RNA sequence: AGCCUGUGAUGAAGAAAAAUGAGUAAGAGUAGUGGACAGAAGUGGUUUCUGAAAAUAUAUUUCUGAGGCU
Numbered sequence: 001a002g003c004c005u006g007u008g009a010u011g012a013a014g015a016a017a018a019a020u021g022a023g024u025a026a027g028a029g030u031a032g033u034g035g036a037c038a039g040a041a042g043u044g045g046u047u048u049c050u051g052a053a054a055a056u057a058u059a060u061u062u063c064u065g066a067g068g069c070u
Stems, first nucleotide, its partner, number of pairs: 001070004
This 70-nucleotide RNA from Pangasianodon hypophthalmus belongs to the Rfam family "Small nucleolar RNA SNORD75". The literature on the family includes a 1998 paper in Mol Cell Biol by Smith and Steitz, "Classification of gas5 as a multi-small-nucleolar-RNA (snoRNA) host gene and a member of the 5'-terminal oligopyrimidine gene family reveals common features of snoRNA host genes". The family's consensus secondary structure was predicted with RNAalifold. Its family is annotated with RNA processing and nucleolus in the Gene Ontology. Rfam classes the family as a C/D-box small nucleolar RNA.